The family of this 90-nucleotide sequence from Marinisporobacter balticus is "c-di-GMP-I riboswitch aptamer". The organism belongs to Marinisporobacter, within Bacteria. A search with the family's covariance model found it, with a score of 80 bits.
[Rfam]
RNA sequence: UCUCGAUAAUGGCAAAACUGGUGAAAACUAGUGACGCAAAGCUAUAGGGGCUAAUGUGUAACACUUACACAAUGCCAGCCAGUUACCGAA
Numbered sequence: 001u002c003u004c005g006a007u008a009a010u011g012g013c014a015a016a017a018c019u020g021g022u023g024a025a026a027a028c029u030a031g032u033g034a035c036g037c038a039a040a041g042c043u044a045u046a047g048g049g050g051c052u053a054a055u056g057u058g059u060a061a062c063a064c065u066u067a068c069a070c071a072a073u074g075c076c077a078g079c080c081a082g083u084u085a086c087c088g089a090a
Stems, first nucleotide, its partner, number of pairs: 012037002017032006040084004047080002049076003056070006